[Rfam]
RNA sequence: UCGUGGAACGGACCGAACCCUUGGCAGGGACGGGGGAACCACCACCGGGCGUCCACGGACGUCCUCGGGGUGAAGCCGGUGCAGCGGUCAGUCCGCGGCCCCGGCCGGGUGCACUCCCACCCGAACCCGACAGCUCACCUCGCAGGCAUCCAGGAGAGGCUUU
Dot-bracket structure: ............((...(((......))).(((((....(..........................)(((.....((((.....................))))..((((........))))...))).........)))))..)).................
Numbered sequence: 001u002c003g004u005g006g007a008a009c010g011g012a013c014c015g016a017a018c019c020c021u022u023g024g025c026a027g028g029g030a031c032g033g034g035g036g037a038a039c040c041a042c043c044a045c046c047g048g049g050c051g052u053c054c055a056c057g058g059a060c061g062u063c064c065u066c067g068g069g070g071u072g073a074a075g076c077c078g079g080u081g082c083a084g085c086g087g088u089c090a091g092u093c094c095g096c097g098g099c100c101c102c103g104g105c106c107g108g109g110u111g112c113a114c115u116c117c118c119a120c121c122c123g124a125a126c127c128c129g130a131c132a133g134c135u136c137a138c139c140u141c142g143c144a145g146g147c148a149u150c151c152a153g154g155a156g157a158g159g160c161u162u163u
Stems, first nucleotide, its partner, number of pairs: 013146002018029003031142005040067001068128003076104004107122004
The family of this 163-nucleotide RNA from Cellulomonas marina is "c-di-AMP riboswitch aptamer (ydaO/yuaA leader)". The match comes from Rfam's covariance-model search (67 bits).